[Rfam]
The record is a 71-nucleotide sequence from Nicotiana sylvestris, which matches "MIR6151 microRNA precursor family" in Rfam. Rfam links the family to the GO terms RISC complex and miRNA-mediated post-transcriptional gene silencing. Pairs were carried over by alignment from the consensus structure, which was predicted with RNAalifold.
RNA sequence: GGGCGUUGGAUGAGUGAGAGGCGUUGGAUCGAUUUCACUCAAUCCAAGCCUCACAUUCAUCAAGUGUUCGU
Numbered sequence: 001g002g003g004c005g006u007u008g009g010a011u012g013a014g015u016g017a018g019a020g021g022c023g024u025u026g027g028a029u030c031g032a033u034u035u036c037a038c039u040c041a042a043u044c045c046a047a048g049c050c051u052c053a054c055a056u057u058c059a060u061c062a063a064g065u066g067u068u069c070g071u
Base pairs, nucleotide, nucleotide: 004066006064007063009061010060011059012058013057014056015055016054018052020050021049022048024047025046026045027044028043029042031040032039